[Rfam]
RNA sequence: CUUACCAGCGAUUAGGCAUGUCGCAGAACCAUAACUGCAAAAGUGGCAAGGUGCUUGAUAGAAACGCUUGGCUCUAUCAAGUGUGGUGAAAACCUGCAAAGUACAUAGGGUAAAUAAAUUUGGCAUUGAGCCGUCCGAGAUAGAGCCUCGGGCGGUUUCUU
Numbered sequence: 001c002u003u004a005c006c007a008g009c010g011a012u013u014a015g016g017c018a019u020g021u022c023g024c025a026g027a028a029c030c031a032u033a034a035c036u037g038c039a040a041a042a043g044u045g046g047c048a049a050g051g052u053g054c055u056u057g058a059u060a061g062a063a064a065c066g067c068u069u070g071g072c073u074c075u076a077u078c079a080a081g082u083g084u085g086g087u088g089a090a091a092a093c094c095u096g097c098a099a100a101g102u103a104c105a106u107a108g109g110g111u112a113a114a115u116a117a118a119u120u121u122g123g124c125a126u127u128g129a130g131c132c133g134u135c136c137g138a139g140a141u142a143g144a145g146c147c148u149c150g151g152g153c154g155g156u157u158u159c160u161u
Stems, first nucleotide, its partner, number of pairs: 001050003005046003023038004029123003033119001051104006064084007071146007085094003128158012
RNA: FuFi-1 RNA